Small Cajal body-specific RNA 7: a 341-nucleotide RNA from Castor canadensis. The organism belongs to Castor, within Eukaryota. Rfam 15.1 lists 570 matches to the family in 531 species. Gene Ontology terms of the family: nucleolus and RNA processing. The base pairs follow the family's consensus structure.
RNA sequence: UGGAAAUGAUGAAGCAGAGAUACUUGGGUGUUGAAUGCUGUAUGACUGGUAAUUUUUAGUAUGUAUGUUGAGUAAUUCUUCUAGUUUAAUAUUUUAUAUUUACUUAAUAGAGAGUAUGGCAUAUGUGUGUGUGGUGUGCGCGCGCAUGCUUGUGGCUAUGGAAAGGGGGCACUGAAUGGUGGUGCUGAUAUUGGAGUGCAUCUGAGGCUGUUGUAGAAAUAACAUGGGUUGUUGAUUACAACAUUGCCGAUGAUUAGAACCCAAGAACAGCUCACCUAAGUAGCCUGGCACCCUAAAAUCUCUAACAGGUUCAUUAAAUGUGUUCCUGUGAUCUGAUCCAA
Numbered sequence: 001u002g003g004a005a006a007u008g009a010u011g012a013a014g015c016a017g018a019g020a021u022a023c024u025u026g027g028g029u030g031u032u033g034a035a036u037g038c039u040g041u042a043u044g045a046c047u048g049g050u051a052a053u054u055u056u057u058a059g060u061a062u063g064u065a066u067g068u069u070g071a072g073u074a075a076u077u078c079u080u081c082u083a084g085u086u087u088a089a090u091a092u093u094u095u096a097u098a099u100u101u102a103c104u105u106a107a108u109a110g111a112g113a114g115u116a117u118g119g120c121a122u123a124u125g126u127g128u129g130u131g132u133g134g135u136g137u138g139c140g141c142g143c144g145c146a147u148g149c150u151u152g153u154g155g156c157u158a159u160g161g162a163a164a165g166g167g168g169g170c171a172c173u174g175a176a177u178g179g180u181g182g183u184g185c186u187g188a189u190a191u192u193g194g195a196g197u198g199c200a201u202c203u204g205a206g207g208c209u210g211u212u213g214u215a216g217a218a219a220u221a222a223c224a225u226g227g228g229u230u231g232u233u234g235a236u237u238a239c240a241a242c243a244u245u246g247c248c249g250a251u252g253a254u255u256a257g258a259a260c261c262c263a264a265g266a267a268c269a270g271c272u273c274a275c276c277u278a279a280g281u282a283g284c285c286u287g288g289c290a291c292c293c294u295a296a297a298a299u300c301u302c303u304a305a306c307a308g309g310u311u312c313a314u315u316a317a318a319u320g321u322g323u324u325c326c327u328g329u330g331a332u333c334u335g336a337u338c339c340a341a
Base pairs, nucleotide, nucleotide: 001340002339003338004337209243210242211241212240213239214238215237216236218233219232220231221230222229223228